The family of this 69-nucleotide RNA sequence from Macleaya cordata is "Small nucleolar RNA Z105".
The match comes from Rfam's covariance-model search (53 bits).
The family has 11 seed sequences and 621 matches in Rfam 15.1.
By type it is a C/D-box small nucleolar RNA.
Taxonomically the source falls in Macleaya (Eukaryota, Mesangiospermae, Ranunculales, Papaveroideae).
Pairs were carried over by alignment from the consensus structure, which was predicted with CMfinder.

RNA sequence: UCAGCGUGAUGAUGAACAAGUAUUACCGAUUACUUAUCAUGAUUGGACUACAACUCCUACUCAUUCUGA
Numbered sequence: 001u002c003a004g005c006g007u008g009a010u011g012a013u014g015a016a017c018a019a020g021u022a023u024u025a026c027c028g029a030u031u032a033c034u035u036a037u038c039a040u041g042a043u044u045g046g047a048c049u050a051c052a053a054c055u056c057c058u059a060c061u062c063a064u065u066c067u068g069a
Stems, first nucleotide, its partner, number of pairs: 006064004027046001030041001